[Rfam]
bZIP non canonical Hac1/Xbp1 intron: a 74-nucleotide RNA from Phyllostomus discolor. The base pairs follow the family's consensus structure, which was predicted with RNAfold. bZIP intron RNA is a non-canonical intron that was first reported in HAC1 gene in yeast and XBP1 gene in Metazoa. For this family Rfam cites "Conserved RNA structures in the non-canonical Hac1/Xbp1 intron" (Hooks and Griffiths-Jones, RNA Biol, 2011).
RNA sequence: CGGUGGCCGGGUCUGCUGAGUCCGCAGCACUCAGACUACGUGCACCUCUGCAGCAGGUGCAGGCCCAGUUGUUG
Numbered sequence: 001c002g003g004u005g006g007c008c009g010g011g012u013c014u015g016c017u018g019a020g021u022c023c024g025c026a027g028c029a030c031u032c033a034g035a036c037u038a039c040g041u042g043c044a045c046c047u048c049u050g051c052a053g054c055a056g057g058u059g060c061a062g063g064c065c066c067a068g069u070u071g072u073u074g
Stems, first nucleotide, its partner, number of pairs: 001074007009066005016034006043059005

The source organism's lineage runs through Eukaryota, Eumetazoa, Tetrapoda, Theria and Phyllostomus.